RNA: MAT2A 3'UTR stem loop F
RNA sequence: CAUGGAGGAAGCUGACUUGGCUGUUGUGGUACAGACAAGACAGUUUGUUUACAUACCUAGUCUAUG
Numbered sequence: 001c002a003u004g005g006a007g008g009a010a011g012c013u014g015a016c017u018u019g020g021c022u023g024u025u026g027u028g029g030u031a032c033a034g035a036c037a038a039g040a041c042a043g044u045u046u047g048u049u050u051a052c053a054u055a056c057c058u059a060g061u062c063u064a065u066g
Stems, first nucleotide, its partner, number of pairs: 001066006009058001011056001014049003019045007026032002